[Rfam]
RNA: c-di-GMP-I riboswitch aptamer
RNA sequence: UAAAGUUAAGGGCAAACCUUCGGAAACGUUGGGACGCAAAGCCAUGACCUAAGGCAUUUUAUGCUAUGGUUGACAGGUUGCCGAG
Numbered sequence: 001u002a003a004a005g006u007u008a009a010g011g012g013c014a015a016a017c018c019u020u021c022g023g024a025a026a027c028g029u030u031g032g033g034a035c036g037c038a039a040a041g042c043c044a045u046g047a048c049c050u051a052a053g054g055c056a057u058u059u060u061a062u063g064c065u066a067u068g069g070u071u072g073a074c075a076g077g078u079u080g081c082c083g084a085g
Stems, first nucleotide, its partner, number of pairs: 012037002017032002021028002040079004045075002047070003054064004
Dot-bracket structure: ...........((...((..((....))..))...))..((((.(((((....((((...))))...)))...))))))......